[Rfam]
RNA sequence: UACUACACUAUCGAUGUAUAGAUUUACCCGCGAGAUGAUGUGGUUGUUUCACCUAGGACGAGGACAUGGCAUCCUAUUACCAGCCAUUGCACGAAAUUAAUAUGAUGCCACGUCCUCAUACUAGAUGAAACAACCACAUCAUAUCACGGGUGAAUCCAUUCAUCGAUAGUGUGGUU
Number, nucleotide and partner (000 for none) at each position: 001u000002a175003c174004u173005a172006c171007a170008c000009u168010a167011u166012c165013g164014a163015u162016g000017u000018a159019u158020a000021g156022a155023u154024u153025u152026a151027c150028c149029c000030g147031c000032g145033a144034g000035a142036u141037g140038a139039u138040g000041u136042g135043g134044u133045u132046g131047u130048u129049u000050c000051a126052c000053c000054u123055a122056g000057g000058a119059c000060g000061a000062g000063g114064a113065c112066a000067u000068g000069g108070c107071a106072u105073c104074c000075u102076a101077u100078u099079a098080c000081c000082a000083g000084c000085c000086a097087u096088u000089g000090c000091a000092c000093g000094a000095a000096a087097u086098u079099a078100a077101u076102a075103u000104g073105a072106u071107g070108c069109c000110a000111c000112g065113u064114c063115c000116u000117c000118a000119u058120a000121c000122u055123a054124g000125a000126u051127g000128a000129a048130a047131c046132a045133a044134c043135c042136a041137c000138a039139u038140c037141a036142u035143a000144u033145c032146a000147c030148g000149g028150g027151u026152g025153a024154a023155u022156c021157c000158a019159u018160u000161c000162a015163u014164c013165g012166a011167u010168a009169g000170u007171g006172u005173g004174g003175u002176u000
This 176-nucleotide sequence from Oryza sativa belongs to the Rfam family "MIR807 microRNA precursor family".
NCBI's taxonomy places the organism under Eukaryota, Streptophyta, Magnoliopsida, commelinids, Oryza sativa.
Rfam 15.1 lists 1,514 matches to the family in 13 species.
The family's consensus secondary structure was predicted with WAR.
For this family Rfam cites "Rice embryogenic calli express a unique set of microRNAs, suggesting regulatory roles of microRNAs in plant post-embryogenic development" (Luo et al., FEBS Lett, 2006).